[Rfam]
RNA: c-di-GMP-I-GGC riboswitch aptamer
Organism: Roseiconus nitratireducens
Nucleotides: 075
Stems, first nucleotide, its partner, number of pairs: 001075001003072002011036002016031006034061001039068004044064003047059003
Number, partner (000 for none) and nucleotide at each position: 001075a002000a003072c004071g005000a006000g007000a008000a009000a010000g011036g012035c013000a014000a015000a016031c017030c018029g019028a020027c021026u022000g023000c024000g025000a026021a027020g028019u029018c030017g031016g032000g033000a034061c035012g036011c037000a038000a039068a040067g041066c042065c043000a044064u045063g046062g047059g048058u049057c050000u051000c052000c053000c054000c055000g056000a057049g058048a059047u060000c061034g062046c063045c064044a065042g066041g067040c068039u069000a070000c071004c072003g073000a074000a075001u